[Rfam]
RNA sequence: UAGCUCCCCCAGGCCCAGCCCCGUGCAAGCCGGGGCCGGCGAUCGCCGCGGCGCUCUCAGGAGCACGA
Numbered sequence: 001u002a003g004c005u006c007c008c009c010c011a012g013g014c015c016c017a018g019c020c021c022c023g024u025g026c027a028a029g030c031c032g033g034g035g036c037c038g039g040c041g042a043u044c045g046c047c048g049c050g051g052c053g054c055u056c057u058c059a060g061g062a063g064c065a066c067g068a
Stems, first nucleotide, its partner, number of pairs: 004063004013052003016029001018036001020034003037048004
RNA: Twister_sister_ribozyme
Organism: Nannocystis pusilla